The family of this 75-nucleotide RNA from Kitasatospora kifunensis is "ASpks TB sRNA". A search with the family's covariance model found it, with a score of 77 bits. The family's consensus secondary structure is taken from published work. The literature on the family includes a 2009 paper in Mol Microbiol by Arnvig and Young, "Identification of small RNAs in Mycobacterium tuberculosis".
RNA sequence: CUUCACCGCGCCCAGCCACAGCGGCCGCUCGGCCGGCCGGCCCUGCCCGUAGGUCGCGAGCAGCGCCUGCGCCUC
Numbered sequence: 001c002u003u004c005a006c007c008g009c010g011c012c013c014a015g016c017c018a019c020a021g022c023g024g025c026c027g028c029u030c031g032g033c034c035g036g037c038c039g040g041c042c043c044u045g046c047c048c049g050u051a052g053g054u055c056g057c058g059a060g061c062a063g064c065g066c067c068u069g070c071g072c073c074u075c
Stems, first nucleotide, its partner, number of pairs: 015025003032070002038065002043060002047056001049054001